Rfam assigns this 109-nucleotide RNA sequence from Paenarthrobacter sp. YJN-5 to the family "TPP riboswitch aptamer (THI element)".
NCBI's taxonomy places the organism under Bacteria, Actinomycetota, Actinomycetes, Micrococcaceae, Paenarthrobacter.
[Rfam]
RNA sequence: CCCUGACCACACGGGAGCCCCUGCAGGGGCUGAGAAAAGGACUGAAGCAGUCUGCGACCGUUGAACCUGUCCGGGUAAUGCCGGCGAAGGAAGUGAGUAAUCCUUGAGC
Numbered sequence: 001c002c003c004u005g006a007c008c009a010c011a012c013g014g015g016a017g018c019c020c021c022u023g024c025a026g027g028g029g030c031u032g033a034g035a036a037a038a039g040g041a042c043u044g045a046a047g048c049a050g051u052c053u054g055c056g057a058c059c060g061u062u063g064a065a066c067c068u069g070u071c072c073g074g075g076u077a078a079u080g081c082c083g084g085c086g087a088a089g090g091a092a093g094u095g096a097g098u099a100a101u102c103c104u105u106g107a108g109c
Stems, first nucleotide, its partner, number of pairs: 008095003011061004017030005038053003066090003071084004
Dot-bracket structure: .......(((((((..(((((....))))).......(((..........)))....))))....(((..((((......))))...)))..)))..............